[Rfam]
Small nucleolar RNA SNORD100: an 83-nucleotide sequence from Mola mola. The family's RNA type in Rfam is C/D-box small nucleolar RNA. Taxonomically the source falls in Mola (Eukaryota, Opisthokonta, Euteleosteomorpha, Eupercaria). Gene Ontology terms of the family: RNA processing and nucleolus.
RNA sequence: UGUAUCGCUGAUGAUAAUUUGGCUCCCUCUACUGAAUACUAUGAGGAAAUUGCCACUGUUACCCAUUUUUUGUCUGAGACACA
Numbered sequence: 001u002g003u004a005u006c007g008c009u010g011a012u013g014a015u016a017a018u019u020u021g022g023c024u025c026c027c028u029c030u031a032c033u034g035a036a037u038a039c040u041a042u043g044a045g046g047a048a049a050u051u052g053c054c055a056c057u058g059u060u061a062c063c064c065a066u067u068u069u070u071u072g073u074c075u076g077a078g079a080c081a082c083a
Stems, first nucleotide, its partner, number of pairs: 001083003005079002